RNA sequence: AUAUACACUAAGUGACAAGAUUAUUAUGAUCUCUGAACACAUAAUAAUCUUGUCACUAAGUGUAUAU
Number, nucleotide and partner (000 for none) at each position: 001a000002u000003a000004u064005a063006c062007a061008c060009u059010a000011a057012g056013u055014g054015a053016c052017a051018a000019g049020a048021u047022u046023a045024u044025u043026a042027u041028g040029a000030u000031c000032u000033c000034u000035g000036a000037a000038c000039a000040c028041a027042u026043a025044a024045u023046a022047a021048u020049c019050u000051u017052g016053u015054c014055a013056c012057u011058a000059a009060g008061u007062g006063u005064a004065u000066a000067u000
mir-9256 microRNA precursor family: a 67-nucleotide sequence from Pipistrellus kuhlii. It scores 81 bits against the family's covariance model.